[Rfam]
RNA sequence: CAGUAAUAUUAUGACAAGGAGUGAUGGGUGGACGAUGAUUAACUAAUCUUAUUUUUUUAGUUUGAAAUCGGAUAUUUCAAAUGACACAAAAUAGGAUUAGUCUGCCCACUUUUAUAACUCUUUAGCUAUUUUACAGUAGCUUAUUUGUCUAUGUAUCGGUACGGCUAAUCCUUCCAAUUAAUUUGGGAGGAUUUUUUU
Dot-bracket structure: ................(((.....((((..(((..........((((((((((((....(((((((((.....))))))))).....)))))))))))))))..))))..)))......(....((((((....))))))......)...................(((((((((((.....))))))))))).....
Numbered sequence: 001c002a003g004u005a006a007u008a009u010u011a012u013g014a015c016a017a018g019g020a021g022u023g024a025u026g027g028g029u030g031g032a033c034g035a036u037g038a039u040u041a042a043c044u045a046a047u048c049u050u051a052u053u054u055u056u057u058u059a060g061u062u063u064g065a066a067a068u069c070g071g072a073u074a075u076u077u078c079a080a081a082u083g084a085c086a087c088a089a090a091a092u093a094g095g096a097u098u099a100g101u102c103u104g105c106c107c108a109c110u111u112u113u114a115u116a117a118c119u120c121u122u123u124a125g126c127u128a129u130u131u132u133a134c135a136g137u138a139g140c141u142u143a144u145u146u147g148u149c150u151a152u153g154u155a156u157c158g159g160u161a162c163g164g165c166u167a168a169u170c171c172u173u174c175c176a177a178u179u180a181a182u183u184u185g186g187g188a189g190g191a192u193u194u195u196u197u198u
Stems, first nucleotide, its partner, number of pairs: 017113003025108004031102003044099012060082009120147001125140006167193011